Source information:
A member of the RNA family "Small Cajal body specific RNA 11" from Formicarius rufipectus, 138 nucleotides long. The match comes from Rfam's covariance-model search (63 bits). By type it is a small Cajal body RNA. The literature on the family includes a 2002 paper in EMBO J by Darzacq et al., "Cajal body-specific small nuclear RNAs: a novel class of 2'-O-methylation and pseudouridylation guide RNAs". The base pairs follow the family's consensus structure, which was predicted with RNAalifold. NCBI's taxonomy places the organism under Eukaryota, Tetrapoda, Dinosauria, Aves, Formicarius. scaRNAs are a specific class of small nuclear RNAs which localise to the Cajal bodies and guide the modification of RNA polymerase II transcribed spliceosomal RNAs U1, U2, U4, U5 and U12.
RNA sequence: GUGUCCUGACCUCAUCUGGCUGUUCCCCUCACCAGAACUGUGGUGGUGGGGUCUGGGGGUGGACACAGAUAAACUUACUCUCGUGUUAGGAGGGCUGCCAAAGACAUGUGCAAACCCUUAAAGGCAAGAGAGGACACU
Numbered sequence: 001g002u003g004u005c006c007u008g009a010c011c012u013c014a015u016c017u018g019g020c021u022g023u024u025c026c027c028c029u030c031a032c033c034a035g036a037a038c039u040g041u042g043g044u045g046g047u048g049g050g051g052u053c054u055g056g057g058g059g060u061g062g063a064c065a066c067a068g069a070u071a072a073a074c075u076u077a078c079u080c081u082c083g084u085g086u087u088a089g090g091a092g093g094g095c096u097g098c099c100a101a102a103g104a105c106a107u108g109u110g111c112a113a114a115c116c117c118u119u120a121a122a123g124g125c126a127a128g129a130g131a132g133g134a135c136a137c138u
Base pairs, nucleotide, nucleotide: 002065003064004063005062006061010058011057025051026050027048029046030045031044032043078132079131080130081129082128086123087122090119091118092117093116094115096113097111098110099108100107